The family of this 170-nucleotide RNA from Geodermatophilus sp. Leaf369 is "c-di-AMP riboswitch aptamer (ydaO/yuaA leader)".
[Rfam]
RNA sequence: GACCGGUCACCGCCGAACUGCCCACCCUCCGGGGCGGGCGGACCGGGGACCCACCGCAGCACUGGGGUGAGUUCUCCGCGGGCGCCACGAACGGUGGUGCGUGCGGGGAUAGGGCGUCGUCUUCCUGCCCGAACCCGUCAGCUAACCCGGUAGGCGGUCGAGGAGGAUGA
Numbered sequence: 001g002a003c004c005g006g007u008c009a010c011c012g013c014c015g016a017a018c019u020g021c022c023c024a025c026c027c028u029c030c031g032g033g034g035c036g037g038g039c040g041g042a043c044c045g046g047g048g049a050c051c052c053a054c055c056g057c058a059g060c061a062c063u064g065g066g067g068u069g070a071g072u073u074c075u076c077c078g079c080g081g082g083c084g085c086c087a088c089g090a091a092c093g094g095u096g097g098u099g100c101g102u103g104c105g106g107g108g109a110u111a112g113g114g115c116g117u118c119g120u121c122u123u124c125c126u127g128c129c130c131g132a133a134c135c136c137g138u139c140a141g142c143u144a145a146c147c148c149g150g151u152a153g154g155c156g157g158u159c160g161a162g163g164a165g166g167a168u169g170a
Stems, first nucleotide, its partner, number of pairs: 011156004018041006042151006052064002065136003073109008112130004
Gene Ontology terms of the family: regulation of gene expression and cyclic-di-AMP binding. Rfam describes the family as follows. This family represents a conserved RNA structure found upstream of the ydaO and yuaA genes in Bacillus subtilis and related genes in other bacteria.